Rfam assigns this 124-nucleotide RNA sequence from Prevotella nigrescens to the family "FMN riboswitch aptamer (RFN element)".
About the family: The RFN element is a highly conserved domain that is found frequently in the 5'-untranslated regions of prokaryotic mRNAs that encode for flavin mononucleotide (FMN) biosynthesis and transport proteins. This element is a metabolite-dependent riboswitch that directly binds FMN in the absence of proteins.
The family's consensus secondary structure is taken from published work.
[Rfam]
RNA sequence: AAGAACUUCGGGGGCAGGGUGAAAUUCCCUAUCGGCGGUAUAGUCCGCGACUUCUAUAUUUUAUAGAACUGAUUUGGUGAAAUUCCAAAACCGACAGUUAUAGUCUGGAUGGUACGAGGUUUAU
Numbered sequence: 001a002a003g004a005a006c007u008u009c010g011g012g013g014g015c016a017g018g019g020u021g022a023a024a025u026u027c028c029c030u031a032u033c034g035g036c037g038g039u040a041u042a043g044u045c046c047g048c049g050a051c052u053u054c055u056a057u058a059u060u061u062u063a064u065a066g067a068a069c070u071g072a073u074u075u076g077g078u079g080a081a082a083u084u085c086c087a088a089a090a091c092c093g094a095c096a097g098u099u100a101u102a103g104u105c106u107g108g109a110u111g112g113u114a115c116g117a118g119g120u121u122u123a124u
Stems, first nucleotide, its partner, number of pairs: 003122008017029003031104002033093002035048004043091002052068002073089005095107003